[Rfam]
RNA sequence: UGACAGCCACCCGUUUGGGGGCUGAUCAGUAGCUGUAGUACCAUAGAAAGACAUACCGCCCGGAUUUGUUGUUCUGUACAAACCGGGACGGACGG
Numbered sequence: 001u002g003a004c005a006g007c008c009a010c011c012c013g014u015u016u017g018g019g020g021g022c023u024g025a026u027c028a029g030u031a032g033c034u035g036u037a038g039u040a041c042c043a044u045a046g047a048a049a050g051a052c053a054u055a056c057c058g059c060c061c062g063g064a065u066u067u068g069u070u071g072u073u074c075u076g077u078a079c080a081a082a083c084c085g086g087g088a089c090g091g092a093c094g095g
Stems, first nucleotide, its partner, number of pairs: 001028003004024005010019002056091003059087005065082005